Notes
Rfam assigns this 93-nucleotide RNA sequence from Neisseria arctica to the family "Neisseria metabolic switch regulator b (RcoF1/NgncR163)". On this family, see Bauer et al., Microbiology 2017: "The sibling sRNAs NgncR_162 and NgncR_163 of Neisseria gonorrhoeae participate in the expression control of metabolic, transport and regulatory proteins". The family's consensus secondary structure was predicted with RNAfold. It is annotated as a small RNA. About the family: Sibling sRNA described and independently named in three publications. NgncR163 is N. gonorrhoeae while the others are N. meningitidis RNAs. RcoF1 stands for: RNA regulating colonization factor 1. Gene Ontology terms of the family: tricarboxylic acid cycle, regulation of translation, ncRNA-mediated and protein binding. Lineage of the source: Bacteria > Pseudomonadati > Pseudomonadota > Betaproteobacteria > Neisseria.
[Rfam]
RNA sequence: GCAUUGAUUGGUUUGAACUUACCAGUUAAUAGUUUCUCCUCUAUUUCUCCUUUGUAGACUUGGCACACAUUCCAAAAGAAUGUGUGCAUUUUU
Numbered sequence: 001g002c003a004u005u006g007a008u009u010g011g012u013u014u015g016a017a018c019u020u021a022c023c024a025g026u027u028a029a030u031a032g033u034u035u036c037u038c039c040u041c042u043a044u045u046u047c048u049c050c051u052u053u054g055u056a057g058a059c060u061u062g063g064c065a066c067a068c069a070u071u072c073c074a075a076a077a078g079a080a081u082g083u084g085u086g087c088a089u090u091u092u093u
Base pairs, nucleotide, nucleotide: 003030004029005028006027007026008025009024010023011022040058041057042056043055044054063087064086065085066084067083068082069081070080071079072078